Shown here is a 94-nucleotide sequence from Lactuca sativa, a member of the family "Small nucleolar RNA R11/Z151".
Pairs were carried over by alignment from the consensus structure, which was predicted with PFOLD.
Lineage of the source: Eukaryota > Viridiplantae > Mesangiospermae > eudicotyledons > Lactuca.
The family has 5 seed sequences and 802 matches in Rfam 15.1.
[Rfam]
RNA sequence: AGGCUUAUGAGGAUAAAUUAAUUAUCUUAGCGGAUUUCAGUGAGAUUGAAGUAACUUUUGAUCAAUGAUCUGAUUGUUACACACACUGAGGCUU
Numbered sequence: 001a002g003g004c005u006u007a008u009g010a011g012g013a014u015a016a017a018u019u020a021a022u023u024a025u026c027u028u029a030g031c032g033g034a035u036u037u038c039a040g041u042g043a044g045a046u047u048g049a050a051g052u053a054a055c056u057u058u059u060g061a062u063c064a065a066u067g068a069u070c071u072g073a074u075u076g077u078u079a080c081a082c083a084c085a086c087u088g089a090g091g092c093u094u
Base pairs, nucleotide, nucleotide: 001094002093003092004091005090